[Rfam]
RNA sequence: AGGCUGUAAUGGCUUUUAGUGGAACCAAGUAUUUUGGGAUAUUUGGCCUGGGAACGAAACUUCCUUACGGUCAGACAUGGAUUGCACGUUUCGUCUUUGGCGGAACAAGGGGUUUUGCCAAGUUUUGGUAGGGUUCUGCGCCAUGCCCUGUUGCUUCAACCGUCUUCCUGAACCCGCCUGUUAGGGCUUGUCUCGGCUGGUGUAGUUUUCUGUGCCAGUUGGAGGGUUUAGGGCUCUGAGUUAACGUGUCCCGGUUUAACAAUCAAUCGAUCUUCGCGGGUUGCUCGUUGGCAGACAGCGCGAGAAAUCCGUUGUUUCUGUCCGAUGCGGCAAUGUAAUCUGGUCAUGUGACCUCGCCUUGACCGCCAUUAGGGGAGAUUCAUCCAGCGAUGGCAAAGGCGACCCGUGAGAGAGGCGACUGGGAUGGCACUGUUCUUAGGGUUAACAAGUACAAGUUCGGUUUAUUAUGGACGGUGGAGUCUGGUAUUUCCUACCACAUGUU
Numbered sequence: 001a002g003g004c005u006g007u008a009a010u011g012g013c014u015u016u017u018a019g020u021g022g023a024a025c026c027a028a029g030u031a032u033u034u035u036g037g038g039a040u041a042u043u044u045g046g047c048c049u050g051g052g053a054a055c056g057a058a059a060c061u062u063c064c065u066u067a068c069g070g071u072c073a074g075a076c077a078u079g080g081a082u083u084g085c086a087c088g089u090u091u092c093g094u095c096u097u098u099g100g101c102g103g104a105a106c107a108a109g110g111g112g113u114u115u116u117g118c119c120a121a122g123u124u125u126u127g128g129u130a131g132g133g134u135u136c137u138g139c140g141c142c143a144u145g146c147c148c149u150g151u152u153g154c155u156u157c158a159a160c161c162g163u164c165u166u167c168c169u170g171a172a173c174c175c176g177c178c179u180g181u182u183a184g185g186g187c188u189u190g191u192c193u194c195g196g197c198u199g200g201u202g203u204a205g206u207u208u209u210c211u212g213u214g215c216c217a218g219u220u221g222g223a224g225g226g227u228u229u230a231g232g233g234c235u236c237u238g239a240g241u242u243a244a245c246g247u248g249u250c251c252c253g254g255u256u257u258a259a260c261a262a263u264c265a266a267u268c269g270a271u272c273u274u275c276g277c278g279g280g281u282u283g284c285u286c287g288u289u290g291g292c293a294g295a296c297a298g299c300g301c302g303a304g305a306a307a308u309c310c311g312u313u314g315u316u317u318c319u320g321u322c323c324g325a326u327g328c329g330g331c332a333a334u335g336u337a338a339u340c341u342g343g344u345c346a347u348g349u350g351a352c353c354u355c356g357c358c359u360u361g362a363c364c365g366c367c368a369u370u371a372g373g374g375g376a377g378a379u380u381c382a383u384c385c386a387g388c389g390a391u392g393g394c395a396a397a398g399g400c401g402a403c404c405c406g407u408g409a410g411a412g413a414g415g416c417g418a419c420u421g422g423g424a425u426g427g428c429a430c431u432g433u434u435c436u437u438a439g440g441g442u443u444a445a446c447a448a449g450u451a452c453a454a455g456u457u458c459g460g461u462u463u464a465u466u467a468u469g470g471a472c473g474g475u476g477g478a479g480u481c482u483g484g485u486a487u488u489u490c491c492u493a494c495c496a497c498a499u500g501u502u
Stems, first nucleotide, its partner, number of pairs: 001015004019497004024492001027489007039465003199216007237438002240435001243433001246430004250423007271413003274409002277406004284329001286327004290322003293317008302309002330336002354402007365394005374385003
The family of this 502-nucleotide RNA from Naumovozyma castellii is "Fungal signal recognition particle RNA". Its family is annotated with SRP-dependent cotranslational protein targeting to membrane, signal sequence recognition, signal recognition particle, endoplasmic reticulum targeting and signal recognition particle, plasma membrane targeting in the Gene Ontology. The base pairs follow the family's consensus structure, which is taken from published work. On this family, see Wild et al., Curr Opin Struct Biol 2002: "Towards the structure of the mammalian signal recognition particle". Clan: SRP clan. The source organism's lineage runs through Eukaryota, Opisthokonta, Dikarya, Ascomycota and Naumovozyma. The match comes from Rfam's covariance-model search (128 bits). By type it is a non-coding RNA gene.